[Rfam]
RNA sequence: CAUUUAGGUAGAGGUCGCGAGGUUCAUUAAUCCUGCUGAGUGAAGCAACACGUUUACAGCAGAGCUAGGGAACAUCGCCGAAACAAGAUCGGUUUUGCUUGCAUCGAUUUUGUUGGGCCGCAAAUGAACAAUUUGCGGACUGUCUUAGCUUGUCUAAGUUGCGCUAUGUUUUGU
Numbered sequence: 001c002a003u004u005u006a007g008g009u010a011g012a013g014g015u016c017g018c019g020a021g022g023u024u025c026a027u028u029a030a031u032c033c034u035g036c037u038g039a040g041u042g043a044a045g046c047a048a049c050a051c052g053u054u055u056a057c058a059g060c061a062g063a064g065c066u067a068g069g070g071a072a073c074a075u076c077g078c079c080g081a082a083a084c085a086a087g088a089u090c091g092g093u094u095u096u097g098c099u100u101g102c103a104u105c106g107a108u109u110u111u112g113u114u115g116g117g118c119c120g121c122a123a124a125u126g127a128a129c130a131a132u133u134u135g136c137g138g139a140c141u142g143u144c145u146u147a148g149c150u151u152g153u154c155u156a157a158g159u160u161g162c163g164c165u166a167u168g169u170u171u172u173g174u
Base pairs, nucleotide, nucleotide: 006169008167009166010165011164017078018077019076020075022073023072024071025070033062034061035060036059037058038057082114083113084112085111086110087109088108089107090106091105092104093103115141116140118138119137120136121135122134123133124132125131144158145157146156147155148154
RNA: Lysine riboswitch aptamer